This 101-nucleotide sequence from Rhizobacter sp. belongs to the Rfam family "Glycine riboswitch aptamer". The match comes from Rfam's covariance-model search (51 bits).
[Rfam]
RNA sequence: UUUGCGGCGUCAGGAGAGAGCUUCCCCGAGAAGCCGCCGAAGGCGCAGAGCCCGCUUUACUGCAGGCAGGAACGCUCAGGCAAAAGGACUGACAAGCGUGG
Numbered sequence: 001u002u003u004g005c006g007g008c009g010u011c012a013g014g015a016g017a018g019a020g021c022u023u024c025c026c027c028g029a030g031a032a033g034c035c036g037c038c039g040a041a042g043g044c045g046c047a048g049a050g051c052c053c054g055c056u057u058u059a060c061u062g063c064a065g066g067c068a069g070g071a072a073c074g075c076u077c078a079g080g081c082a083a084a085a086g087g088a089c090u091g092a093c094a095a096g097c098g099u100g101g
Stems, first nucleotide, its partner, number of pairs: 009093005020034004036081003039077002043075003050067003